[Rfam]
RNA: MIR159 microRNA precursor family
Organism: Juglans regia
RNA sequence: AGCGGUUUAAGGGAGCUUUCUUCAGUCCACUCAUGGGUGCGUGAAGGGUUUGGAUUAGCUGCCGACUCAUUCAUUCAAACACAGUAGGAAAGGGAGUGAAUUCUACUACUUUGGAUGUGUGAAUGAUGCGGGAGAUAAAAUUCAUCCUUUUCUUUCCUGUGCUUGGACUGAAGGGAGCUCCCUUCUACUUUUUU
Numbered sequence: 001a002g003c004g005g006u007u008u009a010a011g012g013g014a015g016c017u018u019u020c021u022u023c024a025g026u027c028c029a030c031u032c033a034u035g036g037g038u039g040c041g042u043g044a045a046g047g048g049u050u051u052g053g054a055u056u057a058g059c060u061g062c063c064g065a066c067u068c069a070u071u072c073a074u075u076c077a078a079a080c081a082c083a084g085u086a087g088g089a090a091a092g093g094g095a096g097u098g099a100a101u102u103c104u105a106c107u108a109c110u111u112u113g114g115a116u117g118u119g120u121g122a123a124u125g126a127u128g129c130g131g132g133a134g135a136u137a138a139a140a141u142u143c144a145u146c147c148u149u150u151u152c153u154u155u156c157c158u159g160u161g162c163u164u165g166g167a168c169u170g171a172a173g174g175g176a177g178c179u180c181c182c183u184u185c186u187a188c189u190u191u192u193u194u
Stems, first nucleotide, its partner, number of pairs: 013180008023170007036157001059134002062131003068125004076117001
Dot-bracket structure: ............((((((((..(((((((......(......................((.(((...((((....(........................................)....))))...))).))......................)......)))))))..))))))))..............